[Rfam]
RNA: L31-Firmicutes ribosomal protein leader
RNA sequence: CUAUAUCAGAAGAAAUUGAUAUGGCGGAAGGAG
Numbered sequence: 001c002u003a004u005a006u007c008a009g010a011a012g013a014a015a016u017u018g019a020u021a022u023g024g025c026g027g028a029a030g031g032a033g
Base pairs, nucleotide, nucleotide: 001024002023003022004021005020006019007018008017